RNA sequence: GGCAAGAGUAGAAGCGUUCAGCGUGCCGCCACCCCGGCCGCCCGGAAAUUGCUCUUGUA
Numbered sequence: 001g002g003c004a005a006g007a008g009u010a011g012a013a014g015c016g017u018u019c020a021g022c023g024u025g026c027c028g029c030c031a032c033c034c035c036g037g038c039c040g041c042c043c044g045g046a047a048a049u050u051g052c053u054c055u056u057g058u059a
Stems, first nucleotide, its partner, number of pairs: 005055006015044001018046002021041003025038003

Shown here is a 59-nucleotide RNA from Parazoarcus communis, a member of the family "Xanthine riboswitch aptamer (NMT1 RNA)". On this family, see Xu et al., Nucleic Acids Res 2021: "Insights into xanthine riboswitch structure and metal ion-mediated ligand recognition". It scores 51 bits against the family's covariance model.